[Rfam]
RNA sequence: AGUUCCUUUAAACUGAUCCCGUGAGGUCGGUAAGGAGAGCGGAUAUUGGUGGAUCGAAUCGGACUGUCCGGUUCGUGUCACAUCGUGUCAUCCUGUGUCAAAUUCGGAUGAUGGGAAGCUUCUUGCCUGCCUGGGCAAGAAGCUUUUUUGCU
Numbered sequence: 001a002g003u004u005c006c007u008u009u010a011a012a013c014u015g016a017u018c019c020c021g022u023g024a025g026g027u028c029g030g031u032a033a034g035g036a037g038a039g040c041g042g043a044u045a046u047u048g049g050u051g052g053a054u055c056g057a058a059u060c061g062g063a064c065u066g067u068c069c070g071g072u073u074c075g076u077g078u079c080a081c082a083u084c085g086u087g088u089c090a091u092c093c094u095g096u097g098u099c100a101a102a103u104u105c106g107g108a109u110g111a112u113g114g115g116a117a118g119c120u121u122c123u124u125g126c127c128u129g130c131c132u133g134g135g136c137a138a139g140a141a142g143c144u145u146u147u148u149u150g151c152u
Stems, first nucleotide, its partner, number of pairs: 003037006013030006049081003053078002058073001060071001062069001114147014
Rfam assigns this 152-nucleotide RNA sequence from Effusibacillus lacus to the family "PyrR binding site".
A reference for the family is Bonner et al. (2001), "Molecular recognition of pyr mRNA by the Bacillus subtilis attenuation regulatory protein PyrR", Nucleic Acids Res.
The family's RNA type in Rfam is cis-regulatory element.